[Rfam]
RNA sequence: UGGCGGGCUAGUCUGGGUAGGCCGGCGUUACCUAUAACCCGAAAUCGUCGAUAUGCGGGAGACGAAGCCAAAAGAAGUUGUUUUGAUCAUAUCUAAACCUGUGAUCUCAACUGAGAAGCCCCGUCCUGCUUGGAUGAUGUUGGUAGAAGAACUAAUUGGAGAAUUGGUUUUCCUAUCUUUACAGUGGGAACCAGUCGAGGCCCGGAAGGGAGCAGACCUACCAUUGACAUUUGUCGCUUGUAGGGCUGCGGGGUGGAGGAGAGGUUGCAGAUCAUUUGGAUUUGUGACAAGCGGCAACUCGCGGUAUGCCCGCCA
Numbered sequence: 001u002g003g004c005g006g007g008c009u010a011g012u013c014u015g016g017g018u019a020g021g022c023c024g025g026c027g028u029u030a031c032c033u034a035u036a037a038c039c040c041g042a043a044a045u046c047g048u049c050g051a052u053a054u055g056c057g058g059g060a061g062a063c064g065a066a067g068c069c070a071a072a073a074g075a076a077g078u079u080g081u082u083u084u085g086a087u088c089a090u091a092u093c094u095a096a097a098c099c100u101g102u103g104a105u106c107u108c109a110a111c112u113g114a115g116a117a118g119c120c121c122c123g124u125c126c127u128g129c130u131u132g133g134a135u136g137a138u139g140u141u142g143g144u145a146g147a148a149g150a151a152c153u154a155a156u157u158g159g160a161g162a163a164u165u166g167g168u169u170u171u172c173c174u175a176u177c178u179u180u181a182c183a184g185u186g187g188g189a190a191c192c193a194g195u196c197g198a199g200g201c202c203c204g205g206a207a208g209g210g211a212g213c214a215g216a217c218c219u220a221c222c223a224u225u226g227a228c229a230u231u232u233g234u235c236g237c238u239u240g241u242a243g244g245g246c247u248g249c250g251g252g253g254u255g256g257a258g259g260a261g262a263g264g265u266u267g268c269a270g271a272u273c274a275u276u277u278g279g280a281u282u283u284g285u286g287a288c289a290a291g292c293g294g295c296a297a298c299u300c301g302c303g304g305u306a307u308g309c310c311c312g313c314c315a
Base pairs, nucleotide, nucleotide: 001315002314003313004312005311006310007309008308011063012062013061014060015033016032017031018030019029020028038059039058040057041056043054067305068304069303073299074298077295078294079293080292081291082290083289088284089283091281092280093279094278095277096276097275099270100269101268102267103266104265105264106263107262108261111258112257118254119253120252121251122250123249124248125244126243127242128241129240132237133235134234135233136232137231138229139228142177143176144175145174146173148171149170150169151168152167153166154165155164156163157162182226183225184224185223186222187221194217195216196215201210202209203208
RNA: Archaeal signal recognition particle RNA